[Rfam]
RNA sequence: GAUCGCAGUGAUGACUCCAAGAAAUUCAAGCUCAACAGACCGGAAUGCAGGUUUCUCCUUCUGGAGAAUUUUGCGUGUCGACCACCCCGCUGAACUGAGCGAUC
Numbered sequence: 001g002a003u004c005g006c007a008g009u010g011a012u013g014a015c016u017c018c019a020a021g022a023a024a025u026u027c028a029a030g031c032u033c034a035a036c037a038g039a040c041c042g043g044a045a046u047g048c049a050g051g052u053u054u055c056u057c058c059u060u061c062u063g064g065a066g067a068a069u070u071u072u073g074c075g076u077g078u079c080g081a082c083c084a085c086c087c088c089g090c091u092g093a094a095c096u097g098a099g100c101g102a103u104c
Base pairs, nucleotide, nucleotide: 001104002103003102004101005100006099
RNA: Small nucleolar RNA Z107/R87